[Rfam]
RNA sequence: UAGGGUACCCUUUGACAUUUCUUAGUUUAACGAAAUGAACUAAAAUUUCAGAAUGACACAACUUUUUGAAAAACUAGUUCAUUUGUUUGAACUAAGAAAGGUCAAAGGGUACUCUA
Number, nucleotide and partner (000 for none) at each position: 001u000002a115003g114004g113005g112006u111007a110008c109009c108010c107011u106012u105013u104014g103015a102016c101017a000018u099019u098020u097021c096022u095023u094024a093025g092026u091027u090028u089029a088030a087031c000032g000033a084034a083035a082036u081037g080038a079039a078040c077041u076042a075043a000044a000045a000046u000047u000048u000049c000050a000051g000052a000053a000054u000055g000056a000057c000058a000059c000060a000061a000062c000063u000064u000065u000066u000067u000068g000069a000070a000071a000072a000073a000074c000075u042076a041077g040078u039079u038080c037081a036082u035083u034084u033085g000086u000087u030088u029089g028090a027091a026092c025093u024094a023095a022096g021097a020098a019099a018100g000101g016102u015103c014104a013105a012106a011107g010108g009109g008110u007111a006112c005113u004114c003115u002116a000